[Rfam]
Nucleotides: 152
Stems, first nucleotide, its partner, number of pairs: 004149007017029003031132002033121002035065004060119002068097002101117005123135003
Number, partner (000 for none) and nucleotide at each position: 001000c002000g003000a004149u005148g006147a007146u008145c009144u010143c011000a012000g013000g014000g015000c016000g017029g018028g019027g020000u021000g022000g023000a024000a025000g026000u027019c028018c029017c030000c031132a032131c033121c034120g035065g036064c037063g038062g039000u040000g041000a042000g043000c044000a045000g046000g047000c048000g049000a050000a051000a052000g053000c054000c055000u056000g057000u058000c059000a060119g061118c062038c063037c064036g065035c066000g067000a068097g069096c070000g071000c072000c073000u074000c075000c076000c077000a078000u079000c080000c081000c082000c083000g084000a085000u086000g087000g088000g089000a090000g091000g092000g093000u094000c095000a096069g097068c098000a099000g100000a101117u102116u103115c104114g105113g106000u107000g108000c109000a110000a111000a112000u113105c114104c115103g116102a117101a118061g119060c120034c121033g122000a123135c124134g125133g126000u127000c128000a129000u130000a131032g132031u133125c134124c135123g136000g137000a138000u139000g140000a141000a142000a143010g144009a145008g146007a147006u148005c149004g150000g151000u152000u

Shown here is a 152-nucleotide RNA sequence from Microvirga aerilata, a member of the family "FMN riboswitch aptamer (RFN element)". It scores 108 bits against the family's covariance model. Lineage of the source: Bacteria > Pseudomonadota > Hyphomicrobiales > Methylobacteriaceae > Microvirga.